[Rfam]
RNA sequence: GCCACAUGAUGAAUUGAGAUUAAUUGAGCACUUUUGUGCUGAGAUGACCACUUAUCUAUCACCCUUUUCUGAUGGCU
Numbered sequence: 001g002c003c004a005c006a007u008g009a010u011g012a013a014u015u016g017a018g019a020u021u022a023a024u025u026g027a028g029c030a031c032u033u034u035u036g037u038g039c040u041g042a043g044a045u046g047a048c049c050a051c052u053u054a055u056c057u058a059u060c061a062c063c064c065u066u067u068u069c070u071g072a073u074g075g076c077u
Stems, first nucleotide, its partner, number of pairs: 001076004028039004
The record is a 77-nucleotide RNA from Synaphobranchus kaupii, which matches "Small nucleolar RNA SNORD83" in Rfam. Its family is annotated with nucleolus and RNA processing in the Gene Ontology. Rfam 15.1 lists 1,393 matches to the family in 644 species.